[Rfam]
RNA sequence: GGAUGUGAGGGUGAUCUGGCUGCGACAUCUGUCACCCCAUUGAUUGCUAGGGUUGAUUUGGCUGAUCUGGCUGGCUAGGCGGGUGUUCCCUUCCUCCCUCACCACUCCACGUGCGUCUGUCCCGGAGCUGUGCGCUCAUCGAAGACGACCUUCCCCGAUAGAGGAGGACUGUUCUUCUGUCAAGUGUAUACGCCUAGCUGCACUCCCCUGCUAGAACCUCCAAAACAAGCUCUCAAGUUCCAUUUGUAGAAGAACGUAGGGUAGUCAAGCUUCCAAGACUCCAGACACGUCCAAAUGAGACACUGCCUGUGGCAGUCUGCCUUUCUUU
Numbered sequence: 001g002g003a004u005g006u007g008a009g010g011g012u013g014a015u016c017u018g019g020c021u022g023c024g025a026c027a028u029c030u031g032u033c034a035c036c037c038c039a040u041u042g043a044u045u046g047c048u049a050g051g052g053u054u055g056a057u058u059u060g061g062c063u064g065a066u067c068u069g070g071c072u073g074g075c076u077a078g079g080c081g082g083g084u085g086u087u088c089c090c091u092u093c094c095u096c097c098c099u100c101a102c103c104a105c106u107c108c109a110c111g112u113g114c115g116u117c118u119g120u121c122c123c124g125g126a127g128c129u130g131u132g133c134g135c136u137c138a139u140c141g142a143a144g145a146c147g148a149c150c151u152u153c154c155c156c157g158a159u160a161g162a163g164g165a166g167g168a169c170u171g172u173u174c175u176u177c178u179g180u181c182a183a184g185u186g187u188a189u190a191c192g193c194c195u196a197g198c199u200g201c202a203c204u205c206c207c208c209u210g211c212u213a214g215a216a217c218c219u220c221c222a223a224a225a226c227a228a229g230c231u232c233u234c235a236a237g238u239u240c241c242a243u244u245u246g247u248a249g250a251a252g253a254a255c256g257u258a259g260g261g262u263a264g265u266c267a268a269g270c271u272u273c274c275a276a277g278a279c280u281c282c283a284g285a286c287a288c289g290u291c292c293a294a295a296u297g298a299g300a301c302a303c304u305g306c307c308u309g310u311g312g313c314a315g316u317c318u319g320c321c322u323u324u325c326u327u328u
Stems, first nucleotide, its partner, number of pairs: 001108003005102007013093002018090002024087010035074002037070003042067004046062003116167002118164001120162002124137002127135002139158003147153002197270003203264002206261006218252002221249001225247005293328003297323003301319001302316005